[Rfam]
RNA: Bacterial large subunit ribosomal RNA, nucleotides 2099 to 2686
Organism: Melghirimyces profundicolus
RNA sequence: CCCGUGACAGGACGGAAAGACCCCGUGGAGCUUUACUGCAGCCUGAUAUUGGAUCUUGGUACGGUUUGUACAGGAUAGGUGGGAGCCAUGGAAGCCGGGCCGCCAGGUUCGGUGGAGGCAAUCGUGGGAUACCACCCUGACCGUGCCGGGGUUCUAACCGACAACCGUGAUCCGGUUGCGGGACCGUGUCAGGUGGGCAGUUUGACUGGGGCGGUCGCCUCCCAAAAGGUAACGGAGGCGCCCCAAGGUUCCCUCAGCGCGGUUGGAAAUCGCGCAGAAGAGUGUAAAGGCAAAAGGGAGCUUGACUGCGAGACCCACAAGUCGAGCAGGGACGAAAGUCGGGCUUAGUGAUCCGGUGGUUCCGAGUGGAAGGGCCAUCGCUCAACGGAUAAAAGCUACCCCGGGGAUAACAGGCUUAUCUCCCCCAAGAGUCCACAUCGACGGGGAGGUUUGGCACCUCGAUGUCGGCUCAUCGCAUCCUGGGGCUGAAGUCGGUCCCAAGGGUUGGGCUGUUCGCCCAUUAAAGCGGUACGCGAGCUGGGUUCAGAACGUCGUGAGACAGUUCGGUCCCUAUCCGUCACGGGCGCA
Dot-bracket structure: ((((((((.(((.((......((((.(((((((.((((...(((((((..((((((((((((((((.(.........(((((..(((......((((((((....))))))))...)))............)))))).))))))))))))))))...(((.((((((.....))))))))).....)))))))....))))..((((.....))))((((((...........))))))(.((....((((((((.((((((.......))))))....))((......))....))))))....((((..(((......)))..)))).(((....))).))..........(((((((.((........))))))))).....)......)))))..))))))........(((.((((((((...((.......))...)))))))..))))..........(((((((((((..((.((((((......))))))...)).(((((.....))))).....)))))..)..)))).).....(((((((....))).))))....))..)))))))))))....